[Rfam]
The family of this 378-nucleotide RNA sequence from Psilocybe cubensis is "Group I catalytic intron". Rfam's curators write: Group I catalytic introns are large self-splicing ribozymes. They catalyse their own excision from mRNA, tRNA and rRNA precursors in a wide range of organisms. The core secondary structure consists of 9 paired regions (P1-P9). These fold to essentially two domains - the P4-P6 domain (formed from the stacking of P5, P4, P6 and P6a helices) and the P3-P9 domain (formed from the P8, P3, P7 and P9 helices). The secondary structure mark-up for this family represents only this conserved core. Group I catalytic introns often have long ORFs inserted in loop regions. The window size for this search is chosen to minimise search time and catch the small examples. A larger window size will find more matches. The literature on the family includes a 1990 paper in Annu Rev Biochem by Cech, "Self-splicing of group I introns". The match comes from Rfam's covariance-model search (73 bits). The base pairs follow the family's consensus structure, which is taken from published work.
RNA sequence: CUGCGGGGUUAUCCAGCUAUGAUGACUUUGUAAUUCGAGGGCGCGCAGUUCUUCAAUGGGUAUGGACAUCAGGUGAGAGUACACUGGGGGUUGUCAGGACCAGCUCUGCUGGAUACGCUCCUGGCAAGUCGGUUGCAGCCGGCGACACUACCGAAUUGCUGGGACGUCCUAAAGCUUGUGGGUACCGCCGACCGCUGGAAACAGCCUAGGCACCGGUGGCGACCGGGUAUGGUAACAAUCCCCAAGAUUCAGCGAAAGCUGGAAUGGAUAAUCAGCAGCGAAUCCGUAACGGUCACGCCGACGGAAGCGUUCAACGACUAGGUGGUAGUGGGGUCUUCGGAUCUUAAGAUAUAGUCUUGGGAGUGGGGAAACCCACAU
Numbered sequence: 001c002u003g004c005g006g007g008g009u010u011a012u013c014c015a016g017c018u019a020u021g022a023u024g025a026c027u028u029u030g031u032a033a034u035u036c037g038a039g040g041g042c043g044c045g046c047a048g049u050u051c052u053u054c055a056a057u058g059g060g061u062a063u064g065g066a067c068a069u070c071a072g073g074u075g076a077g078a079g080u081a082c083a084c085u086g087g088g089g090g091u092u093g094u095c096a097g098g099a100c101c102a103g104c105u106c107u108g109c110u111g112g113a114u115a116c117g118c119u120c121c122u123g124g125c126a127a128g129u130c131g132g133u134u135g136c137a138g139c140c141g142g143c144g145a146c147a148c149u150a151c152c153g154a155a156u157u158g159c160u161g162g163g164a165c166g167u168c169c170u171a172a173a174g175c176u177u178g179u180g181g182g183u184a185c186c187g188c189c190g191a192c193c194g195c196u197g198g199a200a201a202c203a204g205c206c207u208a209g210g211c212a213c214c215g216g217u218g219g220c221g222a223c224c225g226g227g228u229a230u231g232g233u234a235a236c237a238a239u240c241c242c243c244a245a246g247a248u249u250c251a252g253c254g255a256a257a258g259c260u261g262g263a264a265u266g267g268a269u270a271a272u273c274a275g276c277a278g279c280g281a282a283u284c285c286g287u288a289a290c291g292g293u294c295a296c297g298c299c300g301a302c303g304g305a306a307g308c309g310u311u312c313a314a315c316g317a318c319u320a321g322g323u324g325g326u327a328g329u330g331g332g333g334u335c336u337u338c339g340g341a342u343c344u345u346a347a348g349a350u351a352u353a354g355u356c357u358u359g360g361g362a363g364u365g366g367g368g369a370a371a372c373c374c375a376c377a378u
Stems, first nucleotide, its partner, number of pairs: 005029009146330005152324002157277006167268003278310002283305004314357001316356005332343004363376005